[Rfam]
Rfam assigns this 84-nucleotide RNA to the family "c-di-GMP-I-GGC riboswitch aptamer". Its Rfam clan is "c-di-GMP_I riboswitch clan".
RNA sequence: AAUGACAAAGGCAAACCUUUCGAAAGAUUGGGACGCAAAGCUACAGGUCUAAGGUUUUUAACUAGGAUGGCUGAGUUACCUAAA
Numbered sequence: 001a002a003u004g005a006c007a008a009a010g011g012c013a014a015a016c017c018u019u020u021c022g023a024a025a026g027a028u029u030g031g032g033a034c035g036c037a038a039a040g041c042u043a044c045a046g047g048u049c050u051a052a053g054g055u056u057u058u059u060a061a062c063u064a065g066g067a068u069g070g071c072u073g074a075g076u077u078a079c080c081u082a083a084a
Stems, first nucleotide, its partner, number of pairs: 004080001011036002016031002020027002034070001039077004044073003047068003